This 60-nucleotide sequence from Tricholaema leucomelas belongs to the Rfam family "U7 small nuclear RNA". A reference for the family is Spycher et al. (1994), "3' end processing of mouse histone pre-mRNA: evidence for additional base-pairing between U7 snRNA and pre-mRNA", Nucleic Acids Res. Lineage of the source: Eukaryota > Dinosauria > Saurischia > Piciformes > Tricholaema lacrymosa. A search with the family's covariance model found it, with a score of 52 bits.

RNA sequence: AAGAGAUUUCAGAUCUUUUAGUACUUGUCCAGCAGGUUUCCUGCUAUGUGGGAAGCCUCU
Numbered sequence: 001a002a003g004a005g006a007u008u009u010c011a012g013a014u015c016u017u018u019u020a021g022u023a024c025u026u027g028u029c030c031a032g033c034a035g036g037u038u039u040c041c042u043g044c045u046a047u048g049u050g051g052g053a054a055g056c057c058u059c060u
Stems, first nucleotide, its partner, number of pairs: 035057010